[Rfam]
RNA sequence: GGUAGUAGCAGCGAAGUGGGGUGAGAAUCCCCACGGCCGAAAGCGCCAGGGUUCGCCGGCAAUGCUUCGUCAGCCGGCGGUUAGCCGGUCCUAAGGCGGCACCCAGCUGGUAGCCGCCGAAAGGGAAGCCGGUUAAUAUUCCGGCGCCACCGGGGUAGGCGGCAACGCAGGCCUCACCCCUGACGCCUCGGGCUAGGCUGAGCGGGGGCCCGCUGAGGCGGGCGACCCGUCCAAGCGCUUAAGGCCGCCGAGAACCGUAAUGGUGAGAAGCGGCUGAAGGCGCGAUGGGGGCCCCUUUGGGGGCCUUCGGCUCAUGCCUGGGGACCUUGAAAAGGGGGUGGGGAGCGAUCCCCGGUGCCCGUACCGAGAUCCGACACAGGUGCGCUGGCUGAGAAGGCCUAAGGCCUAUCG
Numbered sequence: 001g002g003u004a005g006u007a008g009c010a011g012c013g014a015a016g017u018g019g020g021g022u023g024a025g026a027a028u029c030c031c032c033a034c035g036g037c038c039g040a041a042a043g044c045g046c047c048a049g050g051g052u053u054c055g056c057c058g059g060c061a062a063u064g065c066u067u068c069g070u071c072a073g074c075c076g077g078c079g080g081u082u083a084g085c086c087g088g089u090c091c092u093a094a095g096g097c098g099g100c101a102c103c104c105a106g107c108u109g110g111u112a113g114c115c116g117c118c119g120a121a122a123g124g125g126a127a128g129c130c131g132g133u134u135a136a137u138a139u140u141c142c143g144g145c146g147c148c149a150c151c152g153g154g155g156u157a158g159g160c161g162g163c164a165a166c167g168c169a170g171g172c173c174u175c176a177c178c179c180c181u182g183a184c185g186c187c188u189c190g191g192g193c194u195a196g197g198c199u200g201a202g203c204g205g206g207g208g209c210c211c212g213c214u215g216a217g218g219c220g221g222g223c224g225a226c227c228c229g230u231c232c233a234a235g236c237g238c239u240u241a242a243g244g245c246c247g248c249c250g251a252g253a254a255c256c257g258u259a260a261u262g263g264u265g266a267g268a269a270g271c272g273g274c275u276g277a278a279g280g281c282g283c284g285a286u287g288g289g290g291g292c293c294c295c296u297u298u299g300g301g302g303g304c305c306u307u308c309g310g311c312u313c314a315u316g317c318c319u320g321g322g323g324a325c326c327u328u329g330a331a332a333a334g335g336g337g338g339u340g341g342g343g344a345g346c347g348a349u350c351c352c353c354g355g356u357g358c359c360c361g362u363a364c365c366g367a368g369a370u371c372c373g374a375c376a377c378a379g380g381u382g383c384g385c386u387g388g389c390u391g392a393g394a395a396g397g398c399c400u401a402a403g404g405c406c407u408a409u410c411g
Stems, first nucleotide, its partner, number of pairs: 016034006035406004043385004049365002054079006063072002086361003090124002095118006101111003128145005148357008179336003186323008196312005202230005235283004244274005254264003295300001371380002387399003
Notes
A member of the RNA family "Archaeal large subunit ribosomal RNA" from Candidatus Korarchaeum cryptofilum, 411 nucleotides of a longer RNA. The source organism's lineage runs through Archaea, Thermoproteota, Candidatus Korarchaeales, Candidatus Korarchaeum and Candidatus Korarchaeum cryptofilum.